[Rfam]
RNA sequence: AAAAAGGCCCUUUUUAGGGCCACAAUUUAAAAAUACAAGGGACUUU
Numbered sequence: 001a002a003a004a005a006g007g008c009c010c011u012u013u014u015u016a017g018g019g020c021c022a023c024a025a026u027u028u029a030a031a032a033a034u035a036c037a038a039g040g041g042a043c044u045u046u
Stems, first nucleotide, its partner, number of pairs: 006021006
RNA: Histone 3' UTR stem-loop
Organism: Stegodyphus mimosarum